RNA sequence: UUGCCCAUCGGGGCUGUGGAUACCUGUCUUCAUAUUUUU
Number, nucleotide and partner (000 for none) at each position: 001u000002u000003g014004c013005c012006c011007a000008u000009c000010g000011g006012g005013g004014c003015u000016g000017u026018g025019g024020a000021u000022a000023c000024c019025u018026g017027u000028c000029u000030u000031c000032a000033u000034a000035u000036u000037u000038u000039u000
Background:
The record is a 39-nucleotide RNA sequence from Chrysochloris asiatica, which matches "XIST RNA A repeat" in Rfam. For this family Rfam cites "The Xist RNA A-repeat comprises a novel AUCG tetraloop fold and a platform for multimerization" (Duszczyk et al., RNA, 2011). Pairs were carried over by alignment from the consensus structure, which was predicted with CMfinder. Rfam 15.1 lists 900 matches to the family in 145 species. The organism belongs to Chrysochloris, within Eukaryota. By type it is a small RNA. It scores 47 bits against the family's covariance model.